[Rfam]
RNA sequence: GGGCGGACGCCGACCAACAGGGGCGCACCGCUCAAGUUCGAAGACCCUUCAAACCGCCACGUGCUGCGGAAGUGGUGACGCGACCGUGGUGAGCGACUGUGGGAAAGGCGUCCGUGAGGCGUCAGGU
Numbered sequence: 001g002g003g004c005g006g007a008c009g010c011c012g013a014c015c016a017a018c019a020g021g022g023g024c025g026c027a028c029c030g031c032u033c034a035a036g037u038u039c040g041a042a043g044a045c046c047c048u049u050c051a052a053a054c055c056g057c058c059a060c061g062u063g064c065u066g067c068g069g070a071a072g073u074g075g076u077g078a079c080g081c082g083a084c085c086g087u088g089g090u091g092a093g094c095g096a097c098u099g100u101g102g103g104a105a106a107g108g109c110g111u112c113c114g115u116g117a118g119g120c121g122u123c124a125g126g127u
Base pairs, nucleotide, nucleotide: 001015002014004012005011017049019048020047021046022045055126057102058101059100060099061098062096063090064089066087067086068085072081073080107123108122109121110120111119112118